[Rfam]
RNA sequence: UGGCACCCAACAUGGCAGCUGGAUGCUGGGGGCACAUCAUGAGGGAGGAUGGAAAAAGGAAGUAGUGCACACUCACUAAAUCUCAAGCAAUUCAGAGACGCAUCAUCGCAGGAGCCUGCCGCGACUGAACCGAAGGUAAGUUGUGCCGUCCAAUCAUGGGGCAAGGAUUAAGCCAGCAUCAGAUUUAUGUUACGCAGUUGAGAGAGGCUCUCAGGACAAGAGGAGUAAAGGUAAAGACUGUGGAUUUAUUUCAUUUCUUUGAUUUUGUAAAGGACAUUUGUCCUU
Numbered sequence: 001u002g003g004c005a006c007c008c009a010a011c012a013u014g015g016c017a018g019c020u021g022g023a024u025g026c027u028g029g030g031g032g033c034a035c036a037u038c039a040u041g042a043g044g045g046a047g048g049a050u051g052g053a054a055a056a057a058g059g060a061a062g063u064a065g066u067g068c069a070c071a072c073u074c075a076c077u078a079a080a081u082c083u084c085a086a087g088c089a090a091u092u093c094a095g096a097g098a099c100g101c102a103u104c105a106u107c108g109c110a111g112g113a114g115c116c117u118g119c120c121g122c123g124a125c126u127g128a129a130c131c132g133a134a135g136g137u138a139a140g141u142u143g144u145g146c147c148g149u150c151c152a153a154u155c156a157u158g159g160g161g162c163a164a165g166g167a168u169u170a171a172g173c174c175a176g177c178a179u180c181a182g183a184u185u186u187a188u189g190u191u192a193c194g195c196a197g198u199u200g201a202g203a204g205a206g207g208c209u210c211u212c213a214g215g216a217c218a219a220g221a222g223g224a225g226u227a228a229a230g231g232u233a234a235a236g237a238c239u240g241u242g243g244a245u246u247u248a249u250u251u252c253a254u255u256u257c258u259u260u261g262a263u264u265u266u267g268u269a270a271a272g273g274a275c276a277u278u279u280g281u282c283c284u285u
Base pairs, nucleotide, nucleotide: 006032007031008030012027013025014024037052038051039050040049087137088136091133092132103129104127105126107123108122109121111119144163145162146161149160150159151158152157170211172208173207174206220260221259222258223257224256225255229247230246231245232244270285271284272283273282274281275280

Mason-Pfizer monkey virus packaging signal: a 285-nucleotide sequence from Nannospalax galili. This family represents a group of sequences that are related to the Mason-Pfizer monkey virus (MPMV) packaging signal. The packaging signal is located in the 5' UTR and is required for specific RNA encapsidation. It is annotated as a cis-regulatory element. The match comes from Rfam's covariance-model search (147 bits). The literature on the family includes a 2004 paper in Virus Res by Mustafa et al., "Mutational analysis of the predicted secondary RNA structure of the Mason-Pfizer monkey virus packaging signal". Pairs were carried over by alignment from the consensus structure, which was predicted with PFOLD.